Small nucleolar RNA SNORD45: a 72-nucleotide RNA. Gene Ontology terms of the family: nucleolus and RNA processing. The base pairs follow the family's consensus structure, which was predicted with PFOLD. For this family Rfam cites "RNomics: an experimental approach that identifies 201 candidates for novel, small, non-messenger RNAs in mouse" (Huttenhofer et al., EMBO J, 2001). The sequence is in the family's curated seed alignment.
RNA sequence: GGUCAAUGAUGUAAUGGCAUGUAUUAGCUGAAUCUAAAGUUGAUGUGAGUUCUAAAAUUACACUGAGACCUU
Numbered sequence: 001g002g003u004c005a006a007u008g009a010u011g012u013a014a015u016g017g018c019a020u021g022u023a024u025u026a027g028c029u030g031a032a033u034c035u036a037a038a039g040u041u042g043a044u045g046u047g048a049g050u051u052c053u054a055a056a057a058u059u060a061c062a063c064u065g066a067g068a069c070c071u072u
Stems, first nucleotide, its partner, number of pairs: 001070004